RNA sequence: GGAUAGCCUGACGCCGCAACCUCCUCCCUGCGGCUAGGGCGAAAGAUGCGGCUCUGACCUCCUCCCCAGAGCUCACAUCCCAGAUCAAGGCGAUGCGCACCUCCUCCCGCGCAUCGCCUUUUUG
Numbered sequence: 001g002g003a004u005a006g007c008c009u010g011a012c013g014c015c016g017c018a019a020c021c022u023c024c025u026c027c028c029u030g031c032g033g034c035u036a037g038g039g040c041g042a043a044a045g046a047u048g049c050g051g052c053u054c055u056g057a058c059c060u061c062c063u064c065c066c067c068a069g070a071g072c073u074c075a076c077a078u079c080c081c082a083g084a085u086c087a088a089g090g091c092g093a094u095g096c097g098c099a100c101c102u103c104c105u106c107c108c109g110c111g112c113a114u115c116g117c118c119u120u121u122u123u124g
Base pairs, nucleotide, nucleotide: 008039009038013034014033015032016031017030045079046078047077048076050074051072052071053070054069088119089118090117091116092115093114094113095112096111097110098109
A member of the RNA family "Alphaproteobacterial ar14" from Loktanella salsilacus, 124 nucleotides long. The family's RNA type in Rfam is small RNA. Pairs were carried over by alignment from the consensus structure. Rfam's curators write: Smr14C2 was renamed NfeR1 (Nodule Formation Efficiency RNA) highly expressed in salt stress and during the symbiotic interaction on legume roots. The source organism's lineage runs through Bacteria, Pseudomonadati, Alphaproteobacteria, Roseobacteraceae and Loktanella. For this family Rfam cites "A survey of sRNA families in alpha-proteobacteria" (del Val et al., RNA Biol, 2012). Rfam 15.1 lists 784 matches to the family in 332 species. Rfam links the family to the GO term biological process involved in symbiotic interaction.